[Rfam]
RNA: mir-971 microRNA precursor family
RNA sequence: CCAUCGGUUCACUCUAAGUUCGAAUACCGAGCCCUGUACGAAAACAGCUUGGUGUUCUACCUUACAGUGACUCGCUGG
Numbered sequence: 001c002c003a004u005c006g007g008u009u010c011a012c013u014c015u016a017a018g019u020u021c022g023a024a025u026a027c028c029g030a031g032c033c034c035u036g037u038a039c040g041a042a043a044a045c046a047g048c049u050u051g052g053u054g055u056u057c058u059a060c061c062u063u064a065c066a067g068u069g070a071c072u073c074g075c076u077g078g
Base pairs, nucleotide, nucleotide: 006073007072009070010069011068012067013066015064016063017062025054026053027052028051029050030049031048032047